[Rfam]
RNA sequence: UAGGAGAAGGUCGAAAAUCCUGAAAAGAGUAGGCA
Numbered sequence: 001u002a003g004g005a006g007a008a009g010g011u012c013g014a015a016a017a018u019c020c021u022g023a024a025a026a027g028a029g030u031a032g033g034c035a
Stems, first nucleotide, its partner, number of pairs: 002021004010034003

The record is a 35-nucleotide sequence from Pedobacter hartonius, which matches "DUF805b RNA" in Rfam. It is annotated as a cis-regulatory element.